[Rfam]
RNA: transfer-messenger RNA
Organism: bacterium HR25
RNA sequence: GGGGACGAGUGGGUUCGACAGGGAAGGUCGAGCCCGGACAGCAGGCCGAGGUCGCCACCGACCUCGUUAAACAGGUGGCGAAAAAGUAACUGGCGAGCGCGAACUCGCUCUGGCCGCCUAGUCUGUAGGCGGCCACGUCGCCCUGGCCUCUCCCCUGCGGGCUGGGAGCGGCGCCAGAGAGCAGGGGUGCAGCCCUCCCGACGCCGAUAGGGAGAGCCCAAGAGACAUCGGCUGGCCCGUCGGUACGCUGCUGGCGGCGGUACGGCGGGCGAGAUGCAAGCGCCAGCUAAGCCUGUAGUCGGUCCGGGGAGGUCUUCGCCUGGACGAGGGGUUCGACUCCCCUCCGUCUCCACCA
Numbered sequence: 001g002g003g004g005a006c007g008a009g010u011g012g013g014u015u016c017g018a019c020a021g022g023g024a025a026g027g028u029c030g031a032g033c034c035c036g037g038a039c040a041g042c043a044g045g046c047c048g049a050g051g052u053c054g055c056c057a058c059c060g061a062c063c064u065c066g067u068u069a070a071a072c073a074g075g076u077g078g079c080g081a082a083a084a085a086g087u088a089a090c091u092g093g094c095g096a097g098c099g100c101g102a103a104c105u106c107g108c109u110c111u112g113g114c115c116g117c118c119u120a121g122u123c124u125g126u127a128g129g130c131g132g133c134c135a136c137g138u139c140g141c142c143c144u145g146g147c148c149u150c151u152c153c154c155c156u157g158c159g160g161g162c163u164g165g166g167a168g169c170g171g172c173g174c175c176a177g178a179g180a181g182c183a184g185g186g187g188u189g190c191a192g193c194c195c196u197c198c199c200g201a202c203g204c205c206g207a208u209a210g211g212g213a214g215a216g217c218c219c220a221a222g223a224g225a226c227a228u229c230g231g232c233u234g235g236c237c238c239g240u241c242g243g244u245a246c247g248c249u250g251c252u253g254g255c256g257g258c259g260g261u262a263c264g265g266c267g268g269g270c271g272a273g274a275u276g277c278a279a280g281c282g283c284c285a286g287c288u289a290a291g292c293c294u295g296u297a298g299u300c301g302g303u304c305c306g307g308g309g310a311g312g313u314c315u316u317c318g319c320c321u322g323g324a325c326g327a328g329g330g331g332u333u334c335g336a337c338u339c340c341c342c343u344c345c346g347u348c349u350c351c352a353c354c355a
Base pairs, nucleotide, nucleotide: 001351002350003349004348005347006346007345019322020321021320022319025316026315027314029312033308034307035306036305037304038303039302041300042295043294044293045292046291047066048065049064050063051062053080054079055078056077057076058075059074109135112134113133114132115131116130117129118128119127136173137172138171139170140169141168142166143165144164146162147161148160149159152186153185154184156181192217193216195214196213197212198211203232204231205230206229207228235270236269237268238267239266240265241264242263246259247258248257250287251286252285253284326344328342329341330340331339